[Rfam]
RNA: Purine riboswitch aptamer
RNA sequence: AUUAAUCUAAAUUAAUUCACUCAUAUAAUAGUCGAGAUAAGGUCGACGAGUAUCUACCCAGCACCGUAAAUGGCUGGACUAUAAGUGAAGAAUACAAGGAU
Number, nucleotide and partner (000 for none) at each position: 001a000002u000003u000004a000005a000006u000007c000008u000009a000010a000011a000012u000013u000014a000015a000016u000017u000018c087019a086020c085021u084022c000023a082024u081025a080026u000027a000028a000029u049030a000031g047032u046033c045034g044035a043036g000037a000038u000039a000040a000041g000042g000043u035044c034045g033046a032047c031048g000049a029050g000051u000052a000053u000054c000055u000056a000057c000058c077059c076060a075061g074062c073063a071064c000065c000066g000067u000068a000069a000070a000071u063072g000073g062074c061075u060076g059077g058078a000079c000080u025081a024082u023083a000084a021085g020086u019087g018088a000089a000090g000091a000092a000093u000094a000095c000096a000097a000098g000099g000100a000101u000